[Rfam]
RNA: small nucleolar RNA snoR137
RNA sequence: GUUGUUGCUUCAUGGUGAUCUCCUAUGUAAAAUACAAUGAAGGAUGAUUCAAUUCCAUAGCAUAUAUUGAUAUUUAUUACCAUUAUUAAACAACAUUGUGUAUUUUGUAUUGCACUUUGUUACCUGUCUUCUGGUACAAUA
Numbered sequence: 001g002u003u004g005u006u007g008c009u010u011c012a013u014g015g016u017g018a019u020c021u022c023c024u025a026u027g028u029a030a031a032a033u034a035c036a037a038u039g040a041a042g043g044a045u046g047a048u049u050c051a052a053u054u055c056c057a058u059a060g061c062a063u064a065u066a067u068u069g070a071u072a073u074u075u076a077u078u079a080c081c082a083u084u085a086u087u088a089a090a091c092a093a094c095a096u097u098g099u100g101u102a103u104u105u106u107g108u109a110u111u112g113c114a115c116u117u118u119g120u121u122a123c124c125u126g127u128c129u130u131c132u133g134g135u136a137c138a139a140u141a
Stems, first nucleotide, its partner, number of pairs: 003062005016051002018048003021044004079135004085129001092121003098115003